Archaeal RNase P: a 282-nucleotide RNA sequence from Methanobrevibacter thaueri. Ribonuclease P (RNase P) is a ubiquitous endoribonuclease, found in archaea, bacteria and eukarya as well as chloroplasts and mitochondria. Its best characterised activity is the generation of mature 5'-ends of tRNAs by cleaving the 5'-leader elements of precursor-tRNAs. Cellular RNase Ps are ribonucleoproteins. RNA from bacterial RNase Ps retains its catalytic activity in the absence of the protein subunit, i.e. it is a ribozyme. Isolated eukaryotic and archaeal RNase P RNA has not been shown to retain its catalytic function, but is still essential for the catalytic activity of the holoenzyme. Although the archaeal and eukaryotic holoenzymes have a much greater protein content than the bacterial ones, the RNA cores from all the three lineages are homologous -- helices corresponding to P1, P2, P3, P4, and P10/11 are common to all cellular RNase P RNAs. Yet, there is considerable sequence variation, particularly among the eukaryotic RNAs. Clan: RNaseP clan. For this family Rfam cites "Ribonuclease P: unity and diversity in a tRNA processing ribozyme" (Frank and Pace, Annu Rev Biochem, 1998). Pairs were carried over by alignment from the consensus structure, which is taken from published work. Lineage of the source: Archaea > Methanobacteria > Methanobacteriales > Methanobacteriaceae > Methanobrevibacter. The family's RNA type in Rfam is ribozyme.

RNA sequence: GCAAGUUAAAGACAGCUGCUGGUUAUUAUAACUAAGGAAACUCCGCACAUCGAUACAAGACUAUGACGUUGAAAGACGUAUGCUGAGAAGCAUGACUCUGGAGCAGAAACGACACGGCUUUUAAUGGUAGACGAUGAUAUUUGAUUGAGGACAUUAAAAGAAACGGUGAAACGGCCAUUCCAUAGGAUGCAAGAACAAAGAUGCCGAUAAUCGCUUGUGUAGGCAAGGUAGUUCGCUAAGAUGAAUGCUGUGUAAACAGAAUGUGGGUUACUCUUAACAUGC
Dot-bracket structure: (((.((((((((((((...(((((.....)))))....[[[.[[[[[((((.[[[.....((((((((((....)))))(((((....)))))((...(((.............((.((((((((...........((.....)).......))))))))...)).........))).)))))))))))...((((.....((((..........]]]...)))).....))))............)))))..........]]]]]]]].)).))))).)))